[Rfam]
RNA: mraW RNA
Organism: Prauserella shujinwangii
Nucleotides: 107
Base pairs, nucleotide, nucleotide: 010094011093012092013091014090015089018086019085021083022082023081024080025079026078027077028076029075030074031072032071034069036067037066039064040063041062042061043060044059045058046057
Number, partner (000 for none) and nucleotide at each position: 001000c002000g003000a004000c005000a006000c007000g008000g009000a010094u011093g012092u013091c014090g015089u016000g017000a018086g019085g020000c021083c022082u023081c024080u025079g026078u027077c028076c029075g030074c031072g032071c033000g034069g035000c036067g037066g038000c039064c040063c041062u042061g043060g044059u045058g046057c047000a048000c049000c050000u051000u052000c053000c054000c055000c056000g057046g058045c059044a060043c061042c062041a063040g064039g065000u066037c067036c068000a069034c070000g071032g072031c073000g074030g075029c076028g077027g078026a079025c080024g081023g082022a083021g084000a085019c086018c087000u088000g089015a090014c091013g092012g093011c094010a095000u096000c097000c098000g099000u100000u101000u102000u103000u104000c105000a106000c107000a